[Rfam]
RNA sequence: GCGAUGAGCUUUUUUGCAUAAGACGAAAGAUGAGCAUUUAAAUGCUAAACGUUACGUGGACUUAAUGGUCUUUUCGCCGCAAAACAUAGAACACUUGCUACAAGCAAGUAUU
Dot-bracket structure: .............((((......((((((((..((........))....((..............)))))).))))..)))).......((.((((((.....)))))).))
RNA: BsrF
Organism: Paraliobacillus ryukyuensis